[Rfam]
RNA sequence: UUCAUAGAUACAACGUUUAGAACAAAUCUAAAUUUUGUAUCUAUGCCGGCUCACUUUGACGAGGAUUUUUUUACACCGCAUAGAUGAUAAAUUAUCUAUGUGGUUUUUGUUUAUU
Numbered sequence: 001u002u003c004a005u006a007g008a009u010a011c012a013a014c015g016u017u018u019a020g021a022a023c024a025a026a027u028c029u030a031a032a033u034u035u036u037g038u039a040u041c042u043a044u045g046c047c048g049g050c051u052c053a054c055u056u057u058g059a060c061g062a063g064g065a066u067u068u069u070u071u072u073a074c075a076c077c078g079c080a081u082a083g084a085u086g087a088u089a090a091a092u093u094a095u096c097u098a099u100g101u102g103g104u105u106u107u108u109g110u111u112u113a114u115u
Base pairs, nucleotide, nucleotide: 003045004044005043006042007041008040009039010038011037015033016032017031018030019029020028075104076103077102078101079100080099081098082097083096084095085094

Rfam assigns this 115-nucleotide RNA sequence from Alkalibacterium pelagium to the family "trpB ncRNA motif". On this family, see Narunsky et al., Nucleic Acids Res 2024: "The discovery of novel noncoding RNAs in 50 bacterial genomes". From the family's description: trpB ncRNA motif was reported as a strong cis regulatory motif candidate, with potential to be a cis regulatory riboswitch type, it have been identified in Firmicutes and Fusobacteria. The match comes from Rfam's covariance-model search (66 bits). By type it is a cis-regulatory element.